The record is a 142-nucleotide RNA sequence from Albula glossodonta, which matches "U4 spliceosomal RNA" in Rfam. The family has 177 seed sequences and 32,178 matches in Rfam 15.1. Pairs were carried over by alignment from the consensus structure, which is taken from published work.
RNA sequence: AGCUUUGCGCAGUGGCAGUAUCGUAGCCUAUGAGGUUUAUCCGGGCGCGAUUAUUGCUAGUUGAAACUUUACCCAAUACCCCCCGCCUGGACGACCUGAAAUACAGUCGCUGUGGGCAAUUUUUUGACGGUCUCUAAGGAGA
Numbered sequence: 001a002g003c004u005u006u007g008c009g010c011a012g013u014g015g016c017a018g019u020a021u022c023g024u025a026g027c028c029u030a031u032g033a034g035g036u037u038u039a040u041c042c043g044g045g046c047g048c049g050a051u052u053a054u055u056g057c058u059a060g061u062u063g064a065a066a067c068u069u070u071a072c073c074c075a076a077u078a079c080c081c082c083c084c085g086c087c088u089g090g091a092c093g094a095c096c097u098g099a100a101a102u103a104c105a106g107u108c109g110c111u112g113u114g115g116g117c118a119a120u121u122u123u124u125u126g127a128c129g130g131u132c133u134c135u136a137a138g139g140a141g142a
Stems, first nucleotide, its partner, number of pairs: 020051005026046003034042002085117003090111001092109004131142004